The family of this 245-nucleotide sequence from Vanderwaltozyma polyspora is "Small nucleolar RNA snR80". The base pairs follow the family's consensus structure, which was predicted with WAR. Rfam links the family to the GO terms nucleolus and RNA processing.
RNA sequence: GAACGUUUGAUUACACUCUGGAAUUUAGUUAUUUGAUAAAUUAUUUCAGGAUAUUCUCAUGUCUAUUGUUUUUAAUUGAUAAUAGAGGAUUCCAGAAUAUAAAUUUAUUUGAAUACCUGUACUAAAUACCAAUUUACAUUUCAAACAAGAUUAACCCUGGCAUUUACUCACCGAGAUAUACCCCUGAUAGAUUUUUCAUAAGUUUAUCGGGAAUGGUUAUAUUGGUCCAUUUCAGCGCCAUACAU
Numbered sequence: 001g002a003a004c005g006u007u008u009g010a011u012u013a014c015a016c017u018c019u020g021g022a023a024u025u026u027a028g029u030u031a032u033u034u035g036a037u038a039a040a041u042u043a044u045u046u047c048a049g050g051a052u053a054u055u056c057u058c059a060u061g062u063c064u065a066u067u068g069u070u071u072u073u074a075a076u077u078g079a080u081a082a083u084a085g086a087g088g089a090u091u092c093c094a095g096a097a098u099a100u101a102a103a104u105u106u107a108u109u110u111g112a113a114u115a116c117c118u119g120u121a122c123u124a125a126a127u128a129c130c131a132a133u134u135u136a137c138a139u140u141u142c143a144a145a146c147a148a149g150a151u152u153a154a155c156c157c158u159g160g161c162a163u164u165u166a167c168u169c170a171c172c173g174a175g176a177u178a179u180a181c182c183c184c185u186g187a188u189a190g191a192u193u194u195u196u197c198a199u200a201a202g203u204u205u206a207u208c209g210g211g212a213a214u215g216g217u218u219a220u221a222u223u224g225g226u227c228c229a230u231u232u233c234a235g236c237g238c239c240a241u242a243c244a245u
Stems, first nucleotide, its partner, number of pairs: 007144003019131003023127002026124004158240004171225004176220003180217003